[Rfam]
RNA sequence: UUUUUCGCAUAAGUAUGUCCCAUUCAAUAUUUGGGACGUGCUUAUGCUAAAA
Numbered sequence: 001u002u003u004u005u006c007g008c009a010u011a012a013g014u015a016u017g018u019c020c021c022a023u024u025c026a027a028u029a030u031u032u033g034g035g036a037c038g039u040g041c042u043u044a045u046g047c048u049a050a051a052a
Base pairs, nucleotide, nucleotide: 007047008046009045010044011043012042014040015039016038018036019035020034021033022031
Dot-bracket structure: ......((((((.(((.(((((........).)))).))).)))))).....
This 52-nucleotide sequence from Balaenoptera musculus belongs to the Rfam family "mir-1302 microRNA precursor family". Rfam 15.1 lists 16,160 matches to the family in 135 species. The literature on the family includes a 2008 paper in Genome Res by Morin et al., "Application of massively parallel sequencing to microRNA profiling and discovery in human embryonic stem cells".